[Rfam]
RNA sequence: GCCAGCUAAUGAUGACCUGAACUCAAACCCAGAUCUGGGGAGUGCAGGUUUGAUGUCGCCUGGC
Numbered sequence: 001g002c003c004a005g006c007u008a009a010u011g012a013u014g015a016c017c018u019g020a021a022c023u024c025a026a027a028c029c030c031a032g033a034u035c036u037g038g039g040g041a042g043u044g045c046a047g048g049u050u051u052g053a054u055g056u057c058g059c060c061u062g063g064c
Base pairs, nucleotide, nucleotide: 001064002063003062004061005060014050015049016048017047018046019045021043022042023041029038030037031036
A member of the RNA family "Selenocysteine insertion sequence 1" from Oryzias javanicus, 64 nucleotides long. Lineage of the source: Eukaryota > Eurypterygia > Adrianichthyidae > Oryziinae > Oryzias. Rfam links the family to the GO term selenocysteine incorporation. Pairs were carried over by alignment from the consensus structure, which is taken from published work. The literature on the family includes a 1996 paper in RNA by Walczak et al., "A novel RNA structural motif in the selenocysteine insertion element of eukaryotic selenoprotein mRNAs". The incorporation of selenocysteine into a protein sequence is directed by an in-frame UGA codon (usually a stop codon) within the coding region of the mRNA. Selenoprotein mRNAs contain a conserved secondary structure in the 3' UTR that is required for the distinction of UGA stop from UGA selenocysteine. The selenocysteine insertion sequence (SECIS) is around 60 nt in length and adopts a hairpin structure which is sufficiently well-defined and conserved to act as a computational screen for selenoprotein genes. The family's RNA type in Rfam is cis-regulatory element.